[Rfam]
Nucleotides: 126
Base pairs, nucleotide, nucleotide: 001078002077003076004075009040011039012038013037014036015035016034022031023030041065042064043063046061047060048059050057051056081115082114083113084112085111086109087108088107
Number, partner (000 for none) and nucleotide at each position: 001078c002077u003076u004075c005000a006000a007000g008000a009040a010000c011039u012038g013037c014036g015035g016034c017000c018000g019000c020000c021000a022031a023030g024000c025000u026000c027000c028000g029000a030023c031022u032000u033000g034016g035015c036014c037013g038012c039011a040009u041065a042064c043063c044000a045000a046061c047060c048059c049000c050057a051056c052000g053000c054000u055000c056051g057050u058000u059048g060047g061046g062000u063043g064042g065041u066000u067000c068000g069000g070000a071000u072000g073000a074000a075004g076003a077002a078001g079000c080000g081115g082114c083113c084112u085111g086109c087108a088107c089000u090000c091000g092000c093000c094000c095000c096000u097000g098000g099000g100000g101000c102000a103000a104000c105000c106000g107088g108087u109086g110000c111085c112084a113083g114082g115081c116000a117000a118000g119000a120000g121000c122000a123000c124000g125000c126000c
Description: Rfam assigns this 126-nucleotide sequence from Arthrobacter sp. Edens01 to the family "SAM (S-adenosyl methionine) riboswitch aptamer". NCBI's taxonomy places the organism under Bacteria, Bacillati, Actinomycetes, Micrococcales, Arthrobacter. Rfam's curators write: SAM-IV is a mRNA element that regulates gene expression via direct sensing of S-adenosylmethionine (SAM or AdoMet). SAM-IV riboswitches share conserved nucleotide positions with the previously described SAM-I riboswitches sequence analysis and molecular recognition experiments suggest that SAM-I and SAM-IV riboswitches share similar ligand binding sites, but have different scaffolds. Its Rfam clan is "SAM clan". Rfam links the family to the GO terms S-adenosylmethionine metabolic process and regulation of gene expression.